[Rfam]
RNA: Small Cajal body specific RNA 11
Organism: Bos taurus
RNA sequence: AGGUCUGCUAUAAACAUAUAACUUAGGUGAGGUAUAAAGAUUUAACUCUGGAGUCUGGCAGGACAUGCAUCAAUCUCCCUCUCAGGAGGUCUGCCCUAAGAAUAGGGCUAACUCUUGAAGGCAAAAGGGGAUAAU
Numbered sequence: 001a002g003g004u005c006u007g008c009u010a011u012a013a014a015c016a017u018a019u020a021a022c023u024u025a026g027g028u029g030a031g032g033u034a035u036a037a038a039g040a041u042u043u044a045a046c047u048c049u050g051g052a053g054u055c056u057g058g059c060a061g062g063a064c065a066u067g068c069a070u071c072a073a074u075c076u077c078c079c080u081c082u083c084a085g086g087a088g089g090u091c092u093g094c095c096c097u098a099a100g101a102a103u104a105g106g107g108c109u110a111a112c113u114c115u116u117g118a119a120g121g122c123a124a125a126a127g128g129g130g131a132u133a134a135u
Stems, first nucleotide, its partner, number of pairs: 002064001004062004008057001021054003028050002031047003078130005085122001086116004092110001093108006